[Rfam]
Rfam assigns this 139-nucleotide sequence from Ectopseudomonas mendocina to the family "Pseudomonas sRNA P11".
About the family: This small RNA (sRNA) was computationally identified in the genome of the opportunistic pathogen Pseudomonas aeruginosa and its expression verified by northern blot analysis.
The organism belongs to Ectopseudomonas mendocina, within Bacteria.

RNA sequence: CUUCGAGAAAGUUGGCACAGGCACUGCAUUGUUACUGGCAGCAAACACAUAAAGCGCGACCUUCAACGAAGAAGGCUGCACUUCCCGAUAGAACGGGACCUGGACAAAGGCGUCCUCGCUAGGUGACUAGCGGGACGCC
Numbered sequence: 001c002u003u004c005g006a007g008a009a010a011g012u013u014g015g016c017a018c019a020g021g022c023a024c025u026g027c028a029u030u031g032u033u034a035c036u037g038g039c040a041g042c043a044a045a046c047a048c049a050u051a052a053a054g055c056g057c058g059a060c061c062u063u064c065a066a067c068g069a070a071g072a073a074g075g076c077u078g079c080a081c082u083u084c085c086c087g088a089u090a091g092a093a094c095g096g097g098a099c100c101u102g103g104a105c106a107a108a109g110g111c112g113u114c115c116u117c118g119c120u121a122g123g124u125g126a127c128u129a130g131c132g133g134g135a136c137g138c139c
Stems, first nucleotide, its partner, number of pairs: 012107003015027003054081001056079003060075002063072002083098005109139007117132006

The sequence is in the family's curated seed alignment.
Rfam classes the family as a non-coding RNA gene.